[Rfam]
RNA: Plant small nucleolar RNA U3
Organism: Artemisia annua
RNA sequence: ACGACCUUACUUGAACAGGAUCUGUUCUAUAGGCUCGUACCUCUGUAUUCUUGAUACCUAAGAAGACAGAAACCCAUGUCUGGUUGAUGAAUCAUGGCCAUGUAACUAGAGCGUGAUUAACCGAGUCUUAUGGUCUCGGCCAUGGCUCAGUAGAGGAUCGUUGUCAGCCCAUCUAAUGGGUCUUGGCAUGGUUACAUGGCUGUCUGACAGACA
Numbered sequence: 001a002c003g004a005c006c007u008u009a010c011u012u013g014a015a016c017a018g019g020a021u022c023u024g025u026u027c028u029a030u031a032g033g034c035u036c037g038u039a040c041c042u043c044u045g046u047a048u049u050c051u052u053g054a055u056a057c058c059u060a061a062g063a064a065g066a067c068a069g070a071a072a073c074c075c076a077u078g079u080c081u082g083g084u085u086g087a088u089g090a091a092u093c094a095u096g097g098c099c100a101u102g103u104a105a106c107u108a109g110a111g112c113g114u115g116a117u118u119a120a121c122c123g124a125g126u127c128u129u130a131u132g133g134u135c136u137c138g139g140c141c142a143u144g145g146c147u148c149a150g151u152a153g154a155g156g157a158u159c160g161u162u163g164u165c166a167g168c169c170c171a172u173c174u175a176a177u178g179g180g181u182c183u184u185g186g187c188a189u190g191g192u193u194a195c196a197u198g199g200c201u202g203u204c205u206g207a208c209a210g211a212c213a
Base pairs, nucleotide, nucleotide: 001038002037003035005033006032007031013027014026015025016024017023018022043069044068045067046066048064049063050062051061052060053059078212079211080210081209082208097200098199099198100197101196102195103194104193105192106191107190108189110162111161112160113159120151121150123148124147125146126145127144130143131142132141133140134139164186165185166184167183168180169179170178171177